[Rfam]
RNA sequence: CUAUGAUAAUGAAUUAUCAUGGCGAAAGGAG
Numbered sequence: 001c002u003a004u005g006a007u008a009a010u011g012a013a014u015u016a017u018c019a020u021g022g023c024g025a026a027a028g029g030a031g
Stems, first nucleotide, its partner, number of pairs: 001022008